[Rfam]
RNA sequence: AAAUAAAAGUAGGAGCUACCCGCUUCUCGCCUUAGCAGACUUUGUCACUGGGCUAGAUAGUAAUUAUUCAUUUUUAGCAAUUAUGAAUAAAGAUAAGUGCGGGUUCUGUUAUGACAGUACCUGUUUUUUUAUUAUCAG
Numbered sequence: 001a002a003a004u005a006a007a008a009g010u011a012g013g014a015g016c017u018a019c020c021c022g023c024u025u026c027u028c029g030c031c032u033u034a035g036c037a038g039a040c041u042u043u044g045u046c047a048c049u050g051g052g053c054u055a056g057a058u059a060g061u062a063a064u065u066a067u068u069c070a071u072u073u074u075u076a077g078c079a080a081u082u083a084u085g086a087a088u089a090a091a092g093a094u095a096a097g098u099g100c101g102g103g104u105u106c107u108g109u110u111a112u113g114a115c116a117g118u119a120c121c122u123g124u125u126u127u128u129u130u131a132u133u134a135u136c137a138g
Base pairs, nucleotide, nucleotide: 011027012026013025014024015023016022029053030052031051038046039045040044099124100123101122102121103120104119106117107116108115109114